[Rfam]
RNA sequence: UUGCCCAUCUGGGCUGUGGAUACCUGCUUUUAUUCUU
Number, nucleotide and partner (000 for none) at each position: 001u000002u000003g014004c013005c012006c011007a000008u000009c000010u000011g006012g005013g004014c003015u000016g000017u026018g025019g024020a000021u000022a000023c000024c019025u018026g017027c000028u000029u000030u000031u000032a000033u000034u000035c000036u000037u000
RNA: XIST RNA A repeat